[Rfam]
Shown here is an 82-nucleotide sequence from Eleutherodactylus coqui, a member of the family "mir-221 microRNA precursor family". Rfam links the family to the GO terms RISC complex and miRNA-mediated post-transcriptional gene silencing. NCBI's taxonomy places the organism under Eukaryota, Deuterostomia, Teleostomi, Sarcopterygii, Eleutherodactylus.

RNA sequence: GUUGCUAGUCGCUCAGUAACCAGUGUAGAUCCUGUAUUUUGUUCAGCAGCUACAUCUGGCUACUGGGUCUCUAGAUGCAUUU
Number, nucleotide and partner (000 for none) at each position: 001g000002u000003u000004g000005c000006u000007a000008g000009u000010c000011g000012c000013u066014c065015a064016g063017u062018a061019a000020c059021c058022a057023g055024u054025g053026u052027a051028g050029a000030u000031c000032c049033u048034g047035u046036a000037u000038u000039u000040u000041g000042u000043u000044c000045a000046g035047c034048a033049g032050c028051u027052a026053c025054a024055u023056c000057u022058g021059g020060c000061u018062a017063c016064u015065g014066g013067g000068u000069c000070u000071c000072u000073a000074g000075a000076u000077g000078c000079a000080u000081u000082u000